[Rfam]
The family of this 73-nucleotide RNA sequence from Anguilla anguilla is "Small nucleolar RNA SNORD19".
The family has 22 seed sequences and 1,431 matches in Rfam 15.1.
RNA sequence: GAGAAAUGAGGAAAAUAAUACAAGUCUUGAGUUACAAUGAAGACUUUAAUCCAACCCUGAUCUCUGAGCACUU
Numbered sequence: 001g002a003g004a005a006a007u008g009a010g011g012a013a014a015a016u017a018a019u020a021c022a023a024g025u026c027u028u029g030a031g032u033u034a035c036a037a038u039g040a041a042g043a044c045u046u047u048a049a050u051c052c053a054a055c056c057c058u059g060a061u062c063u064c065u066g067a068g069c070a071c072u073u
Stems, first nucleotide, its partner, number of pairs: 001064004

The family's RNA type in Rfam is C/D-box small nucleolar RNA. For this family Rfam cites "RNomics: an experimental approach that identifies 201 candidates for novel, small, non-messenger RNAs in mouse" (Huttenhofer et al., EMBO J, 2001).